[Rfam]
RNA: Small nucleolar RNA SNORD22
Organism: Chauna torquata
RNA sequence: CCCCAGUGAGGAAAGCCUCACGCGUCUUACUGCCCGCCUGGUGCCAGAACCUGCGAAGGUUGAACCCACUGGUGCCGGCGGCUGGAGAGGAGGAUGGCUCGUUCUGUGGGAACGGUCUGAGGGGA
Numbered sequence: 001c002c003c004c005a006g007u008g009a010g011g012a013a014a015g016c017c018u019c020a021c022g023c024g025u026c027u028u029a030c031u032g033c034c035c036g037c038c039u040g041g042u043g044c045c046a047g048a049a050c051c052u053g054c055g056a057a058g059g060u061u062g063a064a065c066c067c068a069c070u071g072g073u074g075c076c077g078g079c080g081g082c083u084g085g086a087g088a089g090g091a092g093g094a095u096g097g098c099u100c101g102u103u104c105u106g107u108g109g110g111a112a113c114g115g116u117c118u119g120a121g122g123g124g125a
Base pairs, nucleotide, nucleotide: 001124002123003122004121